[Rfam]
RNA: U7 small nuclear RNA
RNA sequence: CAGUGUUACAGCUCUAUUAGAAUUUGUCUAGUAGGUUUUCUUUUUCUUUCUGGAAGAUCCGU
Numbered sequence: 001c002a003g004u005g006u007u008a009c010a011g012c013u014c015u016a017u018u019a020g021a022a023u024u025u026g027u028c029u030a031g032u033a034g035g036u037u038u039u040c041u042u043u044u045u046c047u048u049u050c051u052g053g054a055a056g057a058u059c060c061g062u
Stems, first nucleotide, its partner, number of pairs: 034059008